The record is a 141-nucleotide RNA sequence from Priestia koreensis, which matches "c-di-AMP riboswitch aptamer (ydaO/yuaA leader)" in Rfam. It scores 81 bits against the family's covariance model.

[Rfam]
RNA sequence: AUUACAUAUCGGCCUAGUCUCCUGAGGGAGAACGGAGGAACCAAUUUUUUGGGGUUAAUUCUACGAUUUUGUAGAAGGGAUGAGAUACUCUUUCGCCAUCCUACCCGUCAGCUAACUUCGUCGGCUAAAGCGAAGGAGGUC
Numbered sequence: 001a002u003u004a005c006a007u008a009u010c011g012g013c014c015u016a017g018u019c020u021c022c023u024g025a026g027g028g029a030g031a032a033c034g035g036a037g038g039a040a041c042c043a044a045u046u047u048u049u050u051g052g053g054g055u056u057a058a059u060u061c062u063a064c065g066a067u068u069u070u071g072u073a074g075a076a077g078g079g080a081u082g083a084g085a086u087a088c089u090c091u092u093u094c095g096c097c098a099u100c101c102u103a104c105c106c107g108u109c110a111g112c113u114a115a116c117u118u119c120g121u122c123g124g125c126u127a128a129a130g131c132g133a134a135g136g137a138g139g140u141c
Base pairs, nucleotide, nucleotide: 011126012125013124014123018031019030020029032121033120034119035118036117037116042051043050052106053105054104060075061074062073063072078101079100080099081098